RNA sequence: GCUGGUGUAAGUGAUGACCGAUUUUUUUUCCCCGUCAGAGCGGCAGUGUUGAUUUCUCACUGUUCAAGCCAGAUCAUGUCUGAUGCACCAGC
Numbered sequence: 001g002c003u004g005g006u007g008u009a010a011g012u013g014a015u016g017a018c019c020g021a022u023u024u025u026u027u028u029u030c031c032c033c034g035u036c037a038g039a040g041c042g043g044c045a046g047u048g049u050u051g052a053u054u055u056c057u058c059a060c061u062g063u064u065c066a067a068g069c070c071a072g073a074u075c076a077u078g079u080c081u082g083a084u085g086c087a088c089c090a091g092c
Base pairs, nucleotide, nucleotide: 001092002091003090004089005088006087007086008085009084
A member of the RNA family "Small nucleolar SNORD12/SNORD106" from Anhinga anhinga, 92 nucleotides long. It scores 82 bits against the family's covariance model. For this family Rfam cites "Identification of 13 novel human modification guide RNAs" (Vitali et al., Nucleic Acids Res, 2003). Its family is annotated with RNA processing and nucleolus in the Gene Ontology.